[Rfam]
RNA sequence: AACCCCCAGCUAGGCUGGGGGUUCCGUCGAGCUUAUAGAUAUAAGUCAGUUAUAAAACCCCUUUCAAUUUGUUAGAAAUAUCUUGUGGUCUGGCAACUACAAGAGUUAAACAAAAAUUGAAAG
Numbered sequence: 001a002a003c004c005c006c007c008a009g010c011u012a013g014g015c016u017g018g019g020g021g022u023u024c025c026g027u028c029g030a031g032c033u034u035a036u037a038g039a040u041a042u043a044a045g046u047c048a049g050u051u052a053u054a055a056a057a058c059c060c061c062u063u064u065c066a067a068u069u070u071g072u073u074a075g076a077a078a079u080a081u082c083u084u085g086u087g088g089u090c091u092g093g094c095a096a097c098u099a100c101a102a103g104a105g106u107u108a109a110a111c112a113a114a115a116a117u118u119g120a121a122a123g
Stems, first nucleotide, its partner, number of pairs: 001023010030040001032038002061123009070112004077107003081104009